[Rfam]
RNA sequence: GAGUGAGUGUAGAUGGUGUUCAGCACCAAGGACAGAUGUGUUCAGCUGUAUGUAGAUGGUGUUUAGCCCCAAGGACAGGUGUGUUUAGCU
Number, nucleotide and partner (000 for none) at each position: 001g000002a000003g000004u077005g076006a000007g000008u000009g000010u000011a000012g000013a000014u071015g070016g069017u000018g067019u066020u065021c000022a063023g062024c061025a060026c059027c058028a057029a000030g051031g000032a049033c048034a047035g046036a000037u044038g043039u000040g000041u000042u000043c038044a037045g000046c035047u034048g033049u032050a000051u030052g000053u000054a000055g000056a000057u028058g027059g026060u025061g024062u023063u022064u000065a020066g019067c018068c000069c016070c015071a014072a000073g000074g000075a000076c005077a004078g000079g000080u000081g000082u000083g000084u000085u000086u000087a000088g000089c000090u000
Shown here is a 90-nucleotide sequence from Branchiostoma floridae, a member of the family "mir-2060 microRNA precursor family". Its family is annotated with RISC complex and miRNA-mediated post-transcriptional gene silencing in the Gene Ontology. The family has 7 seed sequences and 3,696 matches in Rfam 15.1.